[Rfam]
RNA: Human immunodeficiency virus type 1 dimerisation initiation site
RNA sequence: GGACUCGGCUUGCUGAAGCGCGCACAGCAAGAGGCGAGA
Numbered sequence: 001g002g003a004c005u006c007g008g009c010u011u012g013c014u015g016a017a018g019c020g021c022g023c024a025c026a027g028c029a030a031g032a033g034g035c036g037a038g039a
Stems, first nucleotide, its partner, number of pairs: 005037003009031007